[Rfam]
RNA sequence: CGGCGAUGCCUCCUGCCCGAUACCCACGGGGGCACUCGAUCAUGCUGUGGGAUACAAACGUGUACUCCUUAGACACUUCGGUUGUCAAUAGUGUGGUGUGAGGGUGGGUUAGAUGCCCA
Numbered sequence: 001c002g003g004c005g006a007u008g009c010c011u012c013c014u015g016c017c018c019g020a021u022a023c024c025c026a027c028g029g030g031g032g033c034a035c036u037c038g039a040u041c042a043u044g045c046u047g048u049g050g051g052a053u054a055c056a057a058a059c060g061u062g063u064a065c066u067c068c069u070u071a072g073a074c075a076c077u078u079c080g081g082u083u084g085u086c087a088a089u090a091g092u093g094u095g096g097u098g099u100g101a102g103g104g105u106g107g108g109u110u111a112g113a114u115g116c117c118c119a
Stems, first nucleotide, its partner, number of pairs: 001019003007034007035102004039097008049069004053064004072086004105119005